[Rfam]
RNA sequence: UUGCACCAUCGAUUUAUGUUCUGCCUUCAUUCAGCGUUGGUGGGAUAUUGUACUGGUGCAAAAAGGAAAUGCCACUCCUUGGAGUGGCGGCGGCCAGACAACCGUUGAGACGGAUCCACAGAUAAAUGACCAAUUUUCUGUUGUUUGUCUACUAAAUCUGUCUCACAUUU
Numbered sequence: 001u002u003g004c005a006c007c008a009u010c011g012a013u014u015u016a017u018g019u020u021c022u023g024c025c026u027u028c029a030u031u032c033a034g035c036g037u038u039g040g041u042g043g044g045a046u047a048u049u050g051u052a053c054u055g056g057u058g059c060a061a062a063a064a065g066g067a068a069a070u071g072c073c074a075c076u077c078c079u080u081g082g083a084g085u086g087g088c089g090g091c092g093g094c095c096a097g098a099c100a101a102c103c104g105u106u107g108a109g110a111c112g113g114a115u116c117c118a119c120a121g122a123u124a125a126a127u128g129a130c131c132a133a134u135u136u137u138c139u140g141u142u143g144u145u146u147g148u149c150u151a152c153u154a155a156a157u158c159u160g161u162c163u164c165a166c167a168u169u170u
Stems, first nucleotide, its partner, number of pairs: 002060005009052001013050001016048010107164008125146002129142001
RNA: small nucleolar RNA snoR143
Organism: Digitaria exilis